RNA sequence: CGAACUCGAGUAAAUAAUUGCUCCCUUGUACAGUGAUGUAUAAGUGAAAAGUCGGAGAAUUGCGGGAAACUCUGAGUAUAUCAAGAUAGGAUACUACGCAGUAAUGACGUAGCGAACCCUAAAAAUUCUUGAUUGCAGACAAUCCGCAGCCGAGCUUCCUUAUAAAAGGAAGAAGGUUCAGAGGCUAUGUACCGACUAUCUUGUAUAUAAAUAUACAAGAUAAAGAUAUAGUCCGUACUCUAGGGCGACCUAGAG
Number, nucleotide and partner (000 for none) at each position: 001c000002g025003a000004a000005c000006u000007c020008g019009a018010g000011u000012a000013a000014a000015u000016a000017a000018u009019u008020g007021c000022u000023c000024c000025c002026u000027u000028g000029u000030a039031c038032a037033g000034u000035g000036a000037u032038g031039u030040a000041u000042a000043a000044g000045u000046g000047a000048a000049a000050a197051g196052u195053c194054g193055g000056a000057g190058a000059a000060u000061u148062g147063c146064g145065g144066g143067a000068a000069a000070c000071u139072c138073u137074g136075a000076g000077u000078a000079u000080a000081u000082c000083a000084a000085g000086a000087u000088a000089g000090g000091a000092u000093a000094c000095u000096a000097c000098g000099c000100a000101g000102u000103a000104a000105u000106g000107a000108c000109g000110u000111a000112g000113c000114g000115a000116a000117c000118c000119c000120u000121a000122a000123a000124a000125a000126u000127u000128c000129u000130u000131g000132a000133u000134u000135g000136c074137a073138g072139a071140c000141a000142a000143u066144c065145c064146g063147c062148a061149g177150c176151c000152g000153a000154g000155c172156u171157u170158c169159c168160u000161u000162a000163u000164a000165a000166a000167a000168g159169g158170a157171a156172g155173a000174a000175g000176g150177u149178u000179c000180a000181g234182a000183g233184g232185c231186u230187a229188u000189g000190u057191a000192c000193c054194g053195a052196c051197u050198a000199u220200c219201u218202u217203g216204u215205a214206u213207a212208u000209a000210a000211a000212u207213a206214u205215a204216c203217a202218a201219g200220a199221u000222a000223a000224a000225g000226a000227u000228a000229u187230a186231g185232u184233c183234c181235g000236u000237a000238c000239u000240c253241u252242a251243g250244g249245g000246c000247g000248a000249c244250c243251u242252a241253g240254a000255g000

The family of this 255-nucleotide RNA from Peribacillus asahii is "Group I catalytic intron".
It scores 93 bits against the family's covariance model.
The organism belongs to Peribacillus, within Bacteria.
Rfam's curators write: Group I catalytic introns are large self-splicing ribozymes. They catalyse their own excision from mRNA, tRNA and rRNA precursors in a wide range of organisms. The core secondary structure consists of 9 paired regions (P1-P9). These fold to essentially two domains - the P4-P6 domain (formed from the stacking of P5, P4, P6 and P6a helices) and the P3-P9 domain (formed from the P8, P3, P7 and P9 helices).